[Rfam]
RNA sequence: AUCCCUUAAACUUACAAGUAGGGAAACAUGAUGACUUCGGAUGAUGCCUGAAUCAUCACUGCUUAUGUGACACAAAUUUUUGAGUGGGUAAAGGUUGCCUCUGGGGUGACCCGCCUGCUUUGCGGAAGCCUUGGAGUUGGUGAUCUGUCUG
Number, nucleotide and partner (000 for none) at each position: 001a000002u000003c000004c023005c022006u021007u020008a019009a000010a000011c000012u000013u000014a000015c000016a000017a000018g000019u008020a007021g006022g005023g004024a000025a000026a000027c000028a000029u000030g000031a000032u000033g054034a053035c000036u051037u050038c000039g048040g047041a000042u000043g000044a000045u000046g000047c040048c039049u000050g037051a036052a000053u034054c033055a000056u070057c069058a068059c067060u000061g000062c000063u000064u000065a000066u000067g059068u058069g057070a056071c000072a000073c000074a000075a000076a000077u000078u000079u000080u000081u000082g000083a000084g000085u151086g150087g149088g148089u147090a000091a000092a146093g145094g144095u143096u142097g141098c140099c000100u135101c134102u000103g132104g131105g130106g129107u128108g000109a000110c000111c125112c124113g123114c122115c000116u000117g000118c000119u000120u000121u000122g114123c113124g112125g111126a000127a000128g107129c106130c105131u104132u103133g000134g101135a100136g000137u000138u000139g000140g098141u097142g096143a095144u094145c093146u092147g089148u088149c087150u086151g085
Overview: This 151-nucleotide RNA sequence from Puma concolor belongs to the Rfam family "U12 minor spliceosomal RNA". By type it is a spliceosomal small nuclear RNA. The pairing is the family consensus, mapped onto this sequence. It scores 86 bits against the family's covariance model.